The family of this 600-nucleotide part of an RNA from Mucilaginibacter gracilis is "Bacterial small subunit ribosomal RNA". Clan: SSU clan. The match comes from Rfam's covariance-model search (1525 bits). For this family Rfam cites "The comparative RNA web (CRW) site: an online database of comparative sequence and structure information for ribosomal, intron, and other RNAs" (Cannone et al., BMC Bioinformatics, 2002). Taxonomically the source falls in Mucilaginibacter (Bacteria, Pseudomonadati, Bacteroidota, Sphingobacteriales).

[Rfam]
RNA sequence: UGACGGGGGCCCGCACAAGCGGAGGAGCAUGUGGUUUAAUUCGAUGAUACGCGAGGAACCUUACCCGGGCUUGAAAGUUAGUGAAUGAUUCAGAGACGGAUCAGCUCUUCGGAGCACGAAACUAGGUGCUGCAUGGCUGUCGUCAGCUCGUGCCGUGAGGUGUUGGGUUAAGUCCCGCAACGAGCGCAACCCCUAUGUUUAGUUGCCAGCACGUUAAGGUGGGGACUCUAAACAGACUGCCUACGCAAGUAGAGAGGAAGGAGGGGACGACGUCAAGUCAUCAUGGCCCUUACGUCCGGGGCUACACACGUGCUACAAUGGAUGGUACAGAGGGCAGCUACCUGGCAACAGGAUGCAAAUCUCUUAAAGCCAUUCACAGUUCGGAUCGGGGUCUGCAACUCGACCCCGUGAAGUUGGAUUCGCUAGUAAUCGCAUAUCAGCAAUGAUGCGGUGAAUACGUUCCCGGGCCUUGUACACACCGCCCGUCAAGCCAUGGAAGCUGGAAGUACCUGAAGUGCGUAACCGCAAGGAGCGUCCUAGGGUAAAGUCGGUAACUGGGGCUAAGUCGUAACAAGGUAGCCGUACCGGAAGGUGCGGCUG
Number, nucleotide and partner (000 for none) at each position: 001u476002g475003a473004c472005g471006g000007g470008g469009g468010c467011c466012c465013g464014c000015a460016c459017a000018a000019g423020c422021g421022g420023a419024g316025g000026a314027g313028c312029a311030u310031g309032u308033g307034g305035u304036u000037u000038a000039a000040u055041u054042c053043g052044a000045u000046g000047a000048u000049a000050c000051g000052c043053g042054a041055g040056g000057a000058a000059c000060c000061u000062u000063a000064c300065c299066c298067g297068g296069g295070c294071u000072u000073g000074a000075a000076a123077g122078u121079u119080a000081g117082u116083g115084a000085a000086u103087g102088a101089u100090u099091c098092a000093g000094a000095g000096a000097c000098g091099g090100a089101u088102c087103a086104g000105c114106u113107c112108u000109u000110c000111g000112g107113a106114g105115c083116a082117c081118g000119a079120a000121a078122c077123u076124a000125g289126g288127u000128g287129c286130u285131g284132c000133a000134u283135g282136g278137c277138u276139g274140u000141c272142g271143u000144c000145a000146g185147c184148u183149c182150g181151u180152g161153c160154c159155g000156u000157g000158a000159g154160g153161u152162g000163u000164u177165g176166g175167g174168u000169u000170a000171a000172g000173u000174c167175c166176c165177g164178c000179a000180a151181c150182g149183a148184g147185c146186g000187c000188a000189a000190c000191c266192c265193c264194u263195a000196u234197g233198u232199u231200u230201a229202g228203u000204u000205g000206c223207c222208a000209g000210c221211a220212c219213g000214u000215u000216a000217a000218g000219g212220u211221g210222g207223g206224g000225a000226c000227u000228c202229u201230a200231a199232a198233c197234a196235g000236a000237c257238u256239g000240c254241c252242u251243a250244c249245g000246c000247a000248a000249g244250u243251a242252g241253a000254g240255a000256g238257g237258a000259a000260g000261g000262a000263g194264g193265g192266g191267a000268c000269g000270a000271c142272g141273u000274c139275a000276a138277g137278u136279c000280a000281u000282c135283a134284u131285g130286g129287c128288c126289c125290u000291u000292a000293c000294g070295u069296c068297c067298g066299g065300g064301g000302c000303u000304a035305c034306a000307c033308a032309c031310g030311u029312g028313c027314u026315a000316c024317a000318a000319u000320g375321g374322a373323u372324g371325g370326u369327a000328c000329a000330g000331a000332g363333g362334g361335c000336a000337g356338c355339u000340a000341c000342c351343u350344g349345g000346c000347a000348a000349c344350a343351g342352g000353a000354u000355g338356c337357a000358a000359a000360u000361c334362u333363c332364u000365u000366a000367a000368a000369g326370c325371c324372a323373u322374u321375c320376a000377c000378a000379g000380u000381u000382c413383g000384g000385a000386u000387c408388g407389g406390g405391g404392u403393c402394u000395g000396c000397a000398a000399c000400u000401c000402g393403a392404c391405c390406c389407c388408g387409u000410g000411a000412a000413g382414u000415u000416g000417g000418a000419u023420u022421c021422g020423c019424u000425a000426g000427u000428a000429a452430u451431c450432g449433c448434a447435u446436a000437u000438c000439a000440g000441c000442a000443a000444u000445g000446a435447u434448g433449c432450g431451g430452u429453g000454a000455a000456u000457a000458c000459g016460u015461u000462c000463c000464c013465g012466g011467g010468c009469c008470u007471u005472g004473u003474a000475c002476a001477c000478a000479c575480c000481g572482c000483c000484c568485g567486u000487c000488a000489a562490g561491c560492c559493a000494u557495g556496g555497a000498a000499g552500c551501u550502g549503g548504a000505a000506g000507u544508a543509c542510c541511u000512g000513a000514a000515g537516u000517g535518c534519g533520u532521a000522a000523c530524c529525g000526c000527a000528a000529g524530g523531a000532g520533c519534g518535u517536c000537c515538u000539a000540g000541g510542g509543u508544a507545a000546a000547g000548u503549c502550g501551g500552u499553a000554a000555c496556u495557g494558g000559g492560g491561c490562u489563a000564a000565g000566u000567c485568g484569u000570a000571a000572c481573a000574a000575g479576g000577u600578a599579g598580c597581c596582g595583u594584a593585c592586c591587g000588g000589a000590a000591g586592g585593u584594g583595c582596g581597g580598c579599u578600g577